This 77-nucleotide RNA sequence from an Olavius algarvensis Delta 4 endosymbiont belongs to the Rfam family "c-di-GMP-I-GGC riboswitch aptamer".
RNA sequence: AUUGAUAAAGCCAAACCCACCGGGAGGUGGGGGCGGAAAGCCACGGGUCUUGAACAGAGACAGCCGGGUUGCCAGGG
Numbered sequence: 001a002u003u004g005a006u007a008a009a010g011c012c013a014a015a016c017c018c019a020c021c022g023g024g025a026g027g028u029g030g031g032g033g034c035g036g037a038a039a040g041c042c043a044c045g046g047g048u049c050u051u052g053a054a055c056a057g058a059g060a061c062a063g064c065c066g067g068g069u070u071g072c073c074a075g076g077g
Stems, first nucleotide, its partner, number of pairs: 003074002011036002016031006034063001039070004044066003047061003

The match comes from Rfam's covariance-model search (71 bits).